[Rfam]
RNA sequence: ACACCCUUGACUCACUCUGAGACCUGCCAUUUUUACUCCGUGGCUUGUUUCUAUUUUUGUUCAAGGAAGAGGAAUGAAGCCCCUUACUCACCGCGAUAUGUUAUUCUCUAUUGCUAUAGCGGUCCAUCAUCAAUGGCUACAU
Number, nucleotide and partner (000 for none) at each position: 001a000002c000003a000004c000005c000006c000007u064008u063009g062010a000011c000012u000013c000014a000015c000016u000017c000018u000019g051020a050021g049022a048023c047024c000025u000026g044027c043028c042029a000030u000031u000032u000033u000034u000035a000036c000037u000038c000039c000040g000041u000042g028043g027044c026045u000046u000047g023048u022049u021050u020051c019052u000053a000054u000055u000056u000057u000058u000059g000060u000061u000062c009063a008064a007065g000066g000067a000068a000069g000070a000071g000072g000073a000074a000075u000076g000077a000078a138079g137080c136081c135082c000083c000084u000085u000086a000087c000088u000089c000090a000091c122092c121093g120094c119095g000096a117097u116098a115099u000100g114101u113102u000103a000104u000105u000106c000107u000108c000109u000110a000111u000112u000113g101114c100115u098116a097117u096118a000119g094120c093121g092122g091123u000124c000125c000126a000127u000128c000129a000130u000131c000132a000133a000134u000135g081136g080137c079138u078139a000140c000141a000142u000